[Rfam]
RNA sequence: GUUGCUUCUUACUGGUGAACUCUCUUAAAUUAAAAUGAGGGAUGUUCAUGUUUCAGAAGCAUAGAUAAAAUAUAUGCCAGUAUUAAACAGCAUGAUGUGCUUAUAUCCUACUUGCAUCAUGUUACCUGUCUCCUGGUAUAUUU
Numbered sequence: 001g002u003u004g005c006u007u008c009u010u011a012c013u014g015g016u017g018a019a020c021u022c023u024c025u026u027a028a029a030u031u032a033a034a035a036u037g038a039g040g041g042a043u044g045u046u047c048a049u050g051u052u053u054c055a056g057a058a059g060c061a062u063a064g065a066u067a068a069a070a071u072a073u074a075u076g077c078c079a080g081u082a083u084u085a086a087a088c089a090g091c092a093u094g095a096u097g098u099g100c101u102u103a104u105a106u107c108c109u110a111c112u113u114g115c116a117u118c119a120u121g122u123u124a125c126c127u128g129u130c131u132c133c134u135g136g137u138a139u140a141u142u143u
Stems, first nucleotide, its partner, number of pairs: 003061006016048005021042005076137005082131001089123003093119005
RNA: small nucleolar RNA snoR137